RNA sequence: UGGCGCCCAACGUGGGGCCUGGAUACUGGGGACAACGUGAGGGUCCGACGAUGGAGGAAAAAGGGGUGCGCACCCGCUCAAAUAAUUCAGAGAUGCCAUGGGAGCCUGCCGCGACUGAGCCGAAGGUAAGUUGGUCGUUCAAUCAUGGGGCAAGAAUUAAGCUAGCAUCAGAUUUAUGUGAUACAGUUAAUAGAAGCUCUACAGGCAAGAGGAGUAAAGGUUAAAACUGAGGAUUUAUUUCAAUUCUUUGAUUUUGUAAAGGACAUUUGUCCUU
Dot-bracket structure: .....(((...(((.........)))..)))....(((.........))).................................(.(((........(.(((.......))).)........)).).)........(.((((....))))).......((.(((...............................)))..)).......(((((((..(((((.........)))))......))))))).........((((((....))))))
Numbered sequence: 001u002g003g004c005g006c007c008c009a010a011c012g013u014g015g016g017g018c019c020u021g022g023a024u025a026c027u028g029g030g031g032a033c034a035a036c037g038u039g040a041g042g043g044u045c046c047g048a049c050g051a052u053g054g055a056g057g058a059a060a061a062a063g064g065g066g067u068g069c070g071c072a073c074c075c076g077c078u079c080a081a082a083u084a085a086u087u088c089a090g091a092g093a094u095g096c097c098a099u100g101g102g103a104g105c106c107u108g109c110c111g112c113g114a115c116u117g118a119g120c121c122g123a124a125g126g127u128a129a130g131u132u133g134g135u136c137g138u139u140c141a142a143u144c145a146u147g148g149g150g151c152a153a154g155a156a157u158u159a160a161g162c163u164a165g166c167a168u169c170a171g172a173u174u175u176a177u178g179u180g181a182u183a184c185a186g187u188u189a190a191u192a193g194a195a196g197c198u199c200u201a202c203a204g205g206c207a208a209g210a211g212g213a214g215u216a217a218a219g220g221u222u223a224a225a226a227c228u229g230a231g232g233a234u235u236u237a238u239u240u241c242a243a244u245u246c247u248u249u250g251a252u253u254u255u256g257u258a259a260a261g262g263a264c265a266u267u268u269g270u271c272c273u274u
Stems, first nucleotide, its partner, number of pairs: 006031003012026003036050003084127001086125001087123002097113001099111003136150001138149004158201002161197003209249007218236005259274006

Mason-Pfizer monkey virus packaging signal: a 274-nucleotide sequence from Nannospalax galili. The family has 9 seed sequences and 2,921 matches in Rfam 15.1. This family represents a group of sequences that are related to the Mason-Pfizer monkey virus (MPMV) packaging signal. It is annotated as a cis-regulatory element. On this family, see Mustafa et al., Virus Res 2004: "Mutational analysis of the predicted secondary RNA structure of the Mason-Pfizer monkey virus packaging signal". Taxonomically the source falls in Nannospalax (Eukaryota, Sarcopterygii, Mammalia, Spalacidae). The match comes from Rfam's covariance-model search (172 bits).